This 168-nucleotide RNA sequence from Nicotiana tabacum belongs to the Rfam family "small nucleolar RNA snoR143". The source organism's lineage runs through Eukaryota, Euphyllophyta, Spermatophyta, lamiids and Nicotiana. A reference for the family is Chen and Wu (2009), "Mining small RNA sequencing data: a new approach to identify small nucleolar RNAs in Arabidopsis", Nucleic Acids Res.

[Rfam]
RNA sequence: UUGCACUCGCAUUAAUAUAGGGCUUCGCUAAAUUAUGAAAUAGUGCGGUUCUUAAGCGACAGUGCAUAAAGGGAAAGCUGAAUUUAUCAGCGGCGACCAGACAACCGCUGAGAUGAAUCCACAUAUGGGUUCCUAAUGGUUCUUGUCUACUAAUUUCAUCGCACAUUC
Numbered sequence: 001u002u003g004c005a006c007u008c009g010c011a012u013u014a015a016u017a018u019a020g021g022g023c024u025u026c027g028c029u030a031a032a033u034u035a036u037g038a039a040a041u042a043g044u045g046c047g048g049u050u051c052u053u054a055a056g057c058g059a060c061a062g063u064g065c066a067u068a069a070a071g072g073g074a075a076a077g078c079u080g081a082a083u084u085u086a087u088c089a090g091c092g093g094c095g096a097c098c099a100g101a102c103a104a105c106c107g108c109u110g111a112g113a114u115g116a117a118u119c120c121a122c123a124u125a126u127g128g129g130u131u132c133c134u135a136a137u138g139g140u141u142c143u144u145g146u147c148u149a150c151u152a153a154u155u156u157c158a159u160c161g162c163a164c165a166u167u168c
Base pairs, nucleotide, nucleotide: 002066003065004064005063006062008058009057010056012055013054014053019052020051021050022049023048024047026045027044028043029042030041110162112160113159114158115157116156117155128144129143